[Rfam]
RNA sequence: ACAGCCUGAGGACCGGAAAACCUGCCGCCGGCCCGCCUUGAUAAAUUUUUUCUCAAGGAAACAAGGUGCGAUGUGGGGAAAGCAGUCCCACCAGGCUGU
Numbered sequence: 001a002c003a004g005c006c007u008g009a010g011g012a013c014c015g016g017a018a019a020a021c022c023u024g025c026c027g028c029c030g031g032c033c034c035g036c037c038u039u040g041a042u043a044a045a046u047u048u049u050u051u052c053u054c055a056a057g058g059a060a061a062c063a064a065g066g067u068g069c070g071a072u073g074u075g076g077g078g079a080a081a082g083c084a085g086u087c088c089c090a091c092c093a094g095g096c097u098g099u
Stems, first nucleotide, its partner, number of pairs: 001099008011032001013031004022085004034068001036058006073091005
RNA: skipping-rope RNA